This 92-nucleotide sequence from Jatropha curcas belongs to the Rfam family "Small nucleolar RNA R64/Z200 family". The family's consensus secondary structure was predicted with PFOLD.

RNA sequence: CUUCUGCUGUGAUGAAUCUAUGAAAUUAUUCACAUGUCAGACUUCAGAGAUUUUCAAUCAAUGAGAAGAAAUUUCAUCUCUCUGAGCAGAAG
Numbered sequence: 001c002u003u004c005u006g007c008u009g010u011g012a013u014g015a016a017u018c019u020a021u022g023a024a025a026u027u028a029u030u031c032a033c034a035u036g037u038c039a040g041a042c043u044u045c046a047g048a049g050a051u052u053u054u055c056a057a058u059c060a061a062u063g064a065g066a067a068g069a070a071a072u073u074u075c076a077u078c079u080c081u082c083u084g085a086g087c088a089g090a091a092g
Stems, first nucleotide, its partner, number of pairs: 001092007049059004